[Rfam]
This 97-nucleotide sequence from Carlito syrichta belongs to the Rfam family "Vault RNA". Taxonomically the source falls in Carlito (Eukaryota, Gnathostomata, Teleostomi, Tarsiiformes).
RNA sequence: GGGCCAGCUUUAGCUCAGCAAUUCCUUCAACAGCAUAAUUUCUGCAAACCACCUUUCGAGGGUGGUUCAAGACCUGUGGGCACUUUCCAGUCCUUUA
Number, nucleotide and partner (000 for none) at each position: 001g000002g092003g091004c090005c000006a000007g087008c000009u000010u000011u000012a000013g081014c080015u079016c078017a000018g077019c076020a075021a000022u000023u000024c000025c000026u071027u070028c000029a000030a067031c000032a000033g000034c000035a000036u000037a000038a000039u000040u000041u000042c000043u000044g000045c000046a000047a000048a000049c000050c000051a000052c000053c000054u000055u000056u000057c000058g000059a000060g000061g000062g000063u000064g000065g000066u000067u030068c000069a000070a027071g026072a000073c000074c000075u020076g019077u018078g016079g015080g014081c013082a000083c000084u000085u000086u000087c007088c000089a000090g004091u003092c002093c000094u000095u000096u000097a000